This 218-nucleotide RNA belongs to the Rfam family "PAGEV RNA".

RNA sequence: GCGGGCUUGGAAUUAUGAUGCUGUGGGCCCGCAUCAGCGCGUCUAAGCUUGCGAUCACGGGGAUCUCCGCACGCAAGCCGGUAUAGCCGCGUCUGCCUAAAGUAGGCCGCAUGGGGAAGCUCACAUCGCCCCAGGUGCUCCGAAUUUUAUACGGCAUGACGCGCCACGCGCCGUGGAGGGGUGGCUGUUGGUUGGACAGCUAGAAAGCGUGGACGCCG
Numbered sequence: 001g002c003g004g005g006c007u008u009g010g011a012a013u014u015a016u017g018a019u020g021c022u023g024u025g026g027g028c029c030c031g032c033a034u035c036a037g038c039g040c041g042u043c044u045a046a047g048c049u050u051g052c053g054a055u056c057a058c059g060g061g062g063a064u065c066u067c068c069g070c071a072c073g074c075a076a077g078c079c080g081g082u083a084u085a086g087c088c089g090c091g092u093c094u095g096c097c098u099a100a101a102g103u104a105g106g107c108c109g110c111a112u113g114g115g116g117a118a119g120c121u122c123a124c125a126u127c128g129c130c131c132c133a134g135g136u137g138c139u140c141c142g143a144a145u146u147u148u149a150u151a152c153g154g155c156a157u158g159a160c161g162c163g164c165c166a167c168g169c170g171c172c173g174u175g176g177a178g179g180g181g182u183g184g185c186u187g188u189u190g191g192u193u194g195g196a197c198a199g200c201u202a203g204a205a206a207g208c209g210u211g212g213a214c215g216c217c218g
Base pairs, nucleotide, nucleotide: 001032002031003030004029005028006027007026047078048077049076050075051074052073066177067176068175069174070173088163089162090161091160092159093158094156095155096154097153164212165211166210167209168208169207182202183201184200185199186198187197